[Rfam]
RNA sequence: CUUGAGCGACCCCAGCCGCAGCGGCUGCGCCCGGUCCUGGCCGUAGACGGCGAGCACGGCCUGCGCCUC
Numbered sequence: 001c002u003u004g005a006g007c008g009a010c011c012c013c014a015g016c017c018g019c020a021g022c023g024g025c026u027g028c029g030c031c032c033g034g035u036c037c038u039g040g041c042c043g044u045a046g047a048c049g050g051c052g053a054g055c056a057c058g059g060c061c062u063g064c065g066c067c068u069c
Base pairs, nucleotide, nucleotide: 014026015025016024017023028065029064030063032059037054038053041050042049043048
ASpks TB sRNA: a 69-nucleotide sequence from Actinoplanes sp. N902-109.
The source organism's lineage runs through Bacteria, Bacillati, Actinomycetota, Micromonosporaceae and Actinoplanes.
For this family Rfam cites "Identification of small RNAs in Mycobacterium tuberculosis" (Arnvig and Young, Mol Microbiol, 2009).
The match comes from Rfam's covariance-model search (66 bits).